[Rfam]
A member of the RNA family "Purine riboswitch aptamer" from Cerasibacillus terrae, 102 nucleotides long.
Pairs were carried over by alignment from the consensus structure, which is taken from published work.
RNA sequence: CAAAUAAAAAAUAAAUACACUCAUAUAAUGGCGAGAAUAUGGCUCGCGAGUUUCUACCGGUUUGCCAAAAACAAACCGACUAUGGGUGGCAUUGUUAGAUAG
Numbered sequence: 001c002a003a004a005u006a007a008a009a010a011a012u013a014a015a016u017a018c019a020c021u022c023a024u025a026u027a028a029u030g031g032c033g034a035g036a037a038u039a040u041g042g043c044u045c046g047c048g049a050g051u052u053u054c055u056a057c058c059g060g061u062u063u064g065c066c067a068a069a070a071a072c073a074a075a076c077c078g079a080c081u082a083u084g085g086g087u088g089g090c091a092u093u094g095u096u097a098g099a100u101a102g
Stems, first nucleotide, its partner, number of pairs: 018088008029049001031047005058078007